RNA sequence: CCCUCGUCCGACAAAUCGCCAUCGAAGCUCACAAACGGAGAUUUCCUUCACGGGAGUCUCAGAUGCAAAAAAGCUUUGGGAGAAAGUCCCCGGACACACGUUACUUCCCUGUUACAGGGGAAGCCAAAACGCCGCGGAAACGCGCCGCCAUAGAAGCACAGCGGCUGACCUCCAAGACCUGCGUCCGGACACAAUGGACUCUUUCACAACCCUGCCCCGUCGCUACAUUGUUGGUCCUUCUGCUCUUUCGAGACCCUGCUUUCGCUUUCCGGGACCCUUUGGAUGAAGAUAUGAGUCCGCGUCUGGAGAGUUGGGAGUUGGGGAUCAUGGGGUAGAGGAGCUUUCGAUGACGGGGUGGCCGUUGGGAGGGUUUCGCUUGCCGGGCGAAUCCAAGGGUUCGUCGGAGGGUCUUUCGUCGAGAUCGAUAGGUAUGCGAUUGCCCGUCCACAACUUCUCUACUGAGGUUGGGGCGUGUUACUCGAUGGGGCUUAUUCUUGGUGCGAGG
Numbered sequence: 001c002c003c004u005c006g007u008c009c010g011a012c013a014a015a016u017c018g019c020c021a022u023c024g025a026a027g028c029u030c031a032c033a034a035a036c037g038g039a040g041a042u043u044u045c046c047u048u049c050a051c052g053g054g055a056g057u058c059u060c061a062g063a064u065g066c067a068a069a070a071a072a073g074c075u076u077u078g079g080g081a082g083a084a085a086g087u088c089c090c091c092g093g094a095c096a097c098a099c100g101u102u103a104c105u106u107c108c109c110u111g112u113u114a115c116a117g118g119g120g121a122a123g124c125c126a127a128a129a130c131g132c133c134g135c136g137g138a139a140a141c142g143c144g145c146c147g148c149c150a151u152a153g154a155a156g157c158a159c160a161g162c163g164g165c166u167g168a169c170c171u172c173c174a175a176g177a178c179c180u181g182c183g184u185c186c187g188g189a190c191a192c193a194a195u196g197g198a199c200u201c202u203u204u205c206a207c208a209a210c211c212c213u214g215c216c217c218c219g220u221c222g223c224u225a226c227a228u229u230g231u232u233g234g235u236c237c238u239u240c241u242g243c244u245c246u247u248u249c250g251a252g253a254c255c256c257u258g259c260u261u262u263c264g265c266u267u268u269c270c271g272g273g274a275c276c277c278u279u280u281g282g283a284u285g286a287a288g289a290u291a292u293g294a295g296u297c298c299g300c301g302u303c304u305g306g307a308g309a310g311u312u313g314g315g316a317g318u319u320g321g322g323g324a325u326c327a328u329g330g331g332g333u334a335g336a337g338g339a340g341c342u343u344u345c346g347a348u349g350a351c352g353g354g355g356u357g358g359c360c361g362u363u364g365g366g367a368g369g370g371u372u373u374c375g376c377u378u379g380c381c382g383g384g385c386g387a388a389u390c391c392a393a394g395g396g397u398u399c400g401u402c403g404g405a406g407g408g409u410c411u412u413u414c415g416u417c418g419a420g421a422u423c424g425a426u427a428g429g430u431a432u433g434c435g436a437u438u439g440c441c442c443g444u445c446c447a448c449a450a451c452u453u454c455u456c457u458a459c460u461g462a463g464g465u466u467g468g469g470g471c472g473u474g475u476u477a478c479u480c481g482a483u484g485g486g487g488c489u490u491a492u493u494c495u496u497g498g499u500g501c502g503a504g505g
Stems, first nucleotide, its partner, number of pairs: 002505006008498004014438006022080001023078006038060009084490003088487004104123006252410003259406003263403002270396001281391004374384001376382001440474001442472004
Description: A member of the RNA family "RNase MRP" from Colletotrichum scovillei, 505 nucleotides long. NCBI's taxonomy places the organism under Eukaryota, Fungi, leotiomyceta, Glomerellaceae, Colletotrichum acutatum species complex. The family's RNA type in Rfam is ribozyme. About the family: RNase MRP is an enzymatically active ribonucleoprotein with two distinct roles in eukaryotes. In mitochondria it plays a direct role in the initiation of mitochondrial DNA replication. In the nucleus it is involved in precursor rRNA processing, where it cleaves the internal transcribed spacer 1 between 18S and 5.8S rRNAs.